A member of the RNA family "Small nucleolar RNA snoR53Y" from Citrus unshiu, 86 nucleotides long. Its Rfam clan is "snoR53 clan". Lineage of the source: Eukaryota > Spermatophyta > Mesangiospermae > Pentapetalae > Citrus. The family has 7 seed sequences and 513 matches in Rfam 15.1. Its family is annotated with RNA processing and nucleolus in the Gene Ontology.
[Rfam]
RNA sequence: GUUGCCGGUUAUGUUUCAUAACUGACCAUGCUAAUUCUGAUAAUUAGAUGAAUGAAAGCUUCAUUUUGUUAUUUUCAGAGGGAACU
Numbered sequence: 001g002u003u004g005c006c007g008g009u010u011a012u013g014u015u016u017c018a019u020a021a022c023u024g025a026c027c028a029u030g031c032u033a034a035u036u037c038u039g040a041u042a043a044u045u046a047g048a049u050g051a052a053u054g055a056a057a058g059c060u061u062c063a064u065u066u067u068g069u070u071a072u073u074u075u076c077a078g079a080g081g082g083a084a085c086u
Stems, first nucleotide, its partner, number of pairs: 001085003005081001
Dot-bracket structure: (((.(...........................................................................).))).